[Rfam]
RNA: CyaR/Rye RNA
Organism: Serratia fonticola
RNA sequence: CUGCUUAAAACUAAUAACGAAAAUAUUUGCAUAGCAAUACUAGGAACCACCUCCUUAGCCAGCCCAAUCUCCCUUGGGUUGGCCUUUUC
Numbered sequence: 001c002u003g004c005u006u007a008a009a010a011c012u013a014a015u016a017a018c019g020a021a022a023a024u025a026u027u028u029g030c031a032u033a034g035c036a037a038u039a040c041u042a043g044g045a046a047c048c049a050c051c052u053c054c055u056u057a058g059c060c061a062g063c064c065c066a067a068u069c070u071c072c073c074u075u076g077g078g079u080u081g082g083c084c085u086u087u088u089c
Base pairs, nucleotide, nucleotide: 042055043054044053045052058083059082060081061080062079063078064077065076066075067074